[Rfam]
The record is an 87-nucleotide RNA from Asticcacaulis endophyticus, which matches "Manganese Mn2+ riboswitch aptamer (yybP-ykoY)" in Rfam. Taxonomically the source falls in Asticcacaulis (Bacteria, Pseudomonadati, Alphaproteobacteria, Caulobacterales). On this family, see Dambach et al., Mol Cell 2015: "The ubiquitous yybP-ykoY riboswitch is a manganese-responsive regulatory element".

RNA sequence: CCUUUAGGGGAGUAACCGCGCGGUUUUAAUCGCGGAUAACGUCAACACACUUGCCGGGUAUCGGCAUGGCGUUAUCACUCCGGAGUU
Numbered sequence: 001c002c003u004u005u006a007g008g009g010g011a012g013u014a015a016c017c018g019c020g021c022g023g024u025u026u027u028a029a030u031c032g033c034g035g036a037u038a039a040c041g042u043c044a045a046c047a048c049a050c051u052u053g054c055c056g057g058g059u060a061u062c063g064g065c066a067u068g069g070c071g072u073u074a075u076c077a078c079u080c081c082g083g084a085g086u087u
Stems, first nucleotide, its partner, number of pairs: 020033003035076010052066005